Description
Rfam assigns this 85-nucleotide sequence from Fopius arisanus to the family "mir-46/mir-47/mir-281 microRNA precursor family". The match comes from Rfam's covariance-model search (77 bits). Rfam links the family to the GO terms miRNA-mediated post-transcriptional gene silencing and RISC complex.
[Rfam]
RNA sequence: AGGCUUUCGCUAUGAAGAGAGCUAUCCAUCGACAGUAUGGUAAUAAUGACACUGUCAUGGAGUUGCUCUCUUUGUGGAUGUGGCC
Numbered sequence: 001a002g003g004c005u006u007u008c009g010c011u012a013u014g015a016a017g018a019g020a021g022c023u024a025u026c027c028a029u030c031g032a033c034a035g036u037a038u039g040g041u042a043a044u045a046a047u048g049a050c051a052c053u054g055u056c057a058u059g060g061a062g063u064u065g066c067u068c069u070c071u072u073u074g075u076g077g078a079u080g081u082g083g084c085c
Stems, first nucleotide, its partner, number of pairs: 014073005020067003025061004031056003035052002